[Rfam]
Nucleotides: 102
Base pairs, nucleotide, nucleotide: 001101002100003099004098005097006096007095010024011023012022026072027071028070029069030068078094079093080092081091082090
Number, partner (000 for none) and nucleotide at each position: 001101g002100g003099c004098u005097c006096a007095g008000u009000g010024g011023u012022u013000u014000a015000g016000u017000g018000g019000g020000a021000u022012a023011a024010u025000u026072c027071g028070u029069c030068u031000u032000u033000c034000g035000g036000g037000a038000g039000a040000a041000a042000u043000c044000u045000c046000u047000g048000g049000u050000u051000u052000c053000a054000a055000a056000g057000u058000u059000a060000c061000c062000u063000a064000a065000u066000a067000u068030a069029g070028a071027c072026g073000a074000g075000g076000u077000c078094c079093c080092g081091g082090g083000u084000u085000c086000g087000a088000u089000u090082c091081c092080c093079g094078g095007c096006u097005g098004a099003g100002c101001c102000c

Shown here is a 102-nucleotide RNA sequence from Penicillium concentricum, a member of the family "tRNA". Pairs were carried over by alignment from the consensus structure, which is taken from published work. The family's RNA type in Rfam is transfer RNA. The organism belongs to Penicillium, within Eukaryota. Rfam describes the family as follows. Transfer RNA (tRNA) molecules are approximately 80 nucleotides in length.